RNA sequence: CGAUGGCGAUGAUGAUUUCUAGAUUUUUGCUCUCCUGAUGUAGCCGUGAGGGUGCAAAGUCACUACCUCAUCUGAUGCCAUCU
Numbered sequence: 001c002g003a004u005g006g007c008g009a010u011g012a013u014g015a016u017u018u019c020u021a022g023a024u025u026u027u028u029g030c031u032c033u034c035c036u037g038a039u040g041u042a043g044c045c046g047u048g049a050g051g052g053u054g055c056a057a058a059g060u061c062a063c064u065a066c067c068u069c070a071u072c073u074g075a076u077g078c079c080a081u082c083u
Stems, first nucleotide, its partner, number of pairs: 002082006
A member of the RNA family "Small nucleolar RNA SNORD11B" from Ornithorhynchus anatinus, 83 nucleotides long. It is annotated as a C/D-box small nucleolar RNA. The family is grouped with related families in Rfam's "SNORD11 clan". Lineage of the source: Eukaryota > Deuterostomia > Vertebrata > Sarcopterygii > Ornithorhynchus. Rfam links the family to the GO terms RNA processing and nucleolus. The literature on the family includes a 2006 paper in Nucleic Acids Res by Yang et al., "snoSeeker: an advanced computational package for screening of guide and orphan snoRNA genes in the human genome".